[Rfam]
RNA sequence: UAUUUUUGCACCGUCCUAUAAUCGCUAUAGGACAUACAUAAAAAUCAUUAAACCAAUAUUGGAAUG
Numbered sequence: 001u002a003u004u005u006u007u008g009c010a011c012c013g014u015c016c017u018a019u020a021a022u023c024g025c026u027a028u029a030g031g032a033c034a035u036a037c038a039u040a041a042a043a044a045u046c047a048u049u050a051a052a053c054c055a056a057u058a059u060u061g062g063a064a065u066g
Base pairs, nucleotide, nucleotide: 014032015031016030017029018028019027
RNA: S15-Flavobacteria ribosomal protein leader